[Rfam]
RNA sequence: UAGAAAUGGGAGUUCCUUGCAGCCCAAAAGCAUGUCCAUCAAGAACUCCAUGCUCUCUUCUUUUGGACUGAAGGGAGCUCCUAGUUCUU
Number, nucleotide and partner (000 for none) at each position: 001u000002a000003g000004a000005a000006a000007u083008g082009g081010g080011a079012g078013u077014u076015c075016c074017u073018u072019g000020c000021a069022g068023c000024c066025c065026a064027a063028a062029a000030g000031c000032a000033u000034g000035u000036c000037c000038a000039u000040c000041a000042a000043g000044a000045a000046c000047u000048c000049c000050a000051u000052g000053c000054u000055c000056u000057c000058u000059u000060c000061u000062u028063u027064u026065g025066g024067a000068c022069u021070g000071a000072a018073g017074g016075g015076a014077g013078c012079u011080c010081c009082u008083a007084g000085u000086u000087c000088u000089u000

Notes
The family of this 89-nucleotide RNA from Arachis hypogaea is "MIR319 microRNA precursor family". A search with the family's covariance model found it, with a score of 79 bits. NCBI's taxonomy places the organism under Eukaryota, Viridiplantae, Fabales, Papilionoideae, Arachis. Its family is annotated with miRNA-mediated post-transcriptional gene silencing and RISC complex in the Gene Ontology.